[Rfam]
A member of the RNA family "Small nucleolar RNA SNORD59" from Betta splendens, 74 nucleotides long. The source organism's lineage runs through Eukaryota, Bilateria, Chordata, Anabantoidei and Betta.
RNA sequence: UCUUCGGUGAUGAGUUACACAGUGACUUUCGUUCUUCUGAGCAUGCUGAAGCCAAACUUUCUUUGCUGAGAAGA
Numbered sequence: 001u002c003u004u005c006g007g008u009g010a011u012g013a014g015u016u017a018c019a020c021a022g023u024g025a026c027u028u029u030c031g032u033u034c035u036u037c038u039g040a041g042c043a044u045g046c047u048g049a050a051g052c053c054a055a056a057c058u059u060u061c062u063u064u065g066c067u068g069a070g071a072a073g074a
Stems, first nucleotide, its partner, number of pairs: 001074003005070001

It scores 81 bits against the family's covariance model.